[Rfam]
RNA sequence: CGACCCUUGAUAAGCCGGGGGUCACCUAGCCAACUGACGUUGUUAGUGAACCUAUAUGUUCACACUCAUACAAGCCAAUCUCCCUUUUUGAGGUUGGCUCUUCUUUU
Numbered sequence: 001c002g003a004c005c006c007u008u009g010a011u012a013a014g015c016c017g018g019g020g021g022u023c024a025c026c027u028a029g030c031c032a033a034c035u036g037a038c039g040u041u042g043u044u045a046g047u048g049a050a051c052c053u054a055u056a057u058g059u060u061c062a063c064a065c066u067c068a069u070a071c072a073a074g075c076c077a078a079u080c081u082c083c084c085u086u087u088u089u090g091a092g093g094u095u096g097g098c099u100c101u102u103c104u105u106u107u
Base pairs, nucleotide, nucleotide: 002023003022004021005020006019040073041072042071043070046063047062048061049060050059051058075097076096077095078094079093080092081091082090
A member of the RNA family "Qrr RNA" from Vibrio nereis, 107 nucleotides long.
Rfam's curators write: This family represents a set of small RNAs (the Qrr RNAs) that are thought to be involved in the regulation of quorum sensing in Vibrio species. It is believed that these RNAs, guided by a protein, Hfq, can mediate the destabilisation of the quorum-sensing master regulators LuxR/HapR mRNAs.
The literature on the family includes a 2007 paper in Genes Dev by Tu and Bassler, "Multiple small RNAs act additively to integrate sensory information and control quorum sensing in Vibrio harveyi".
Pairs were carried over by alignment from the consensus structure, which is taken from published work.
The match comes from Rfam's covariance-model search (98 bits).
By type it is a small RNA.
Gene Ontology term of the family: quorum sensing.
The source organism's lineage runs through Bacteria, Pseudomonadati, Gammaproteobacteria, Vibrionales and Vibrio.